[Rfam]
RNA sequence: UAAAUCAAUGAGGGACAAUUUGUGUCUCUUAGCUUGGAAGAACAUGGAGGCAUAGCGAAUGGGCUAGUCAUCGUUUCAGUCGUCGUUGUUAGUUAGGCGGUCUGAUUGUUUCUCGUCUAUAU
Numbered sequence: 001u002a003a004a005u006c007a008a009u010g011a012g013g014g015a016c017a018a019u020u021u022g023u024g025u026c027u028c029u030u031a032g033c034u035u036g037g038a039a040g041a042a043c044a045u046g047g048a049g050g051c052a053u054a055g056c057g058a059a060u061g062g063g064c065u066a067g068u069c070a071u072c073g074u075u076u077c078a079g080u081c082g083u084c085g086u087u088g089u090u091a092g093u094u095a096g097g098c099g100g101u102c103u104g105a106u107u108g109u110u111u112c113u114c115g116u117c118u119a120u121a122u
Stems, first nucleotide, its partner, number of pairs: 006036001007034001009032001012028006062118002066113002070106004079101006
RNA: Small nucleolar RNA snoR111
Organism: Rosa chinensis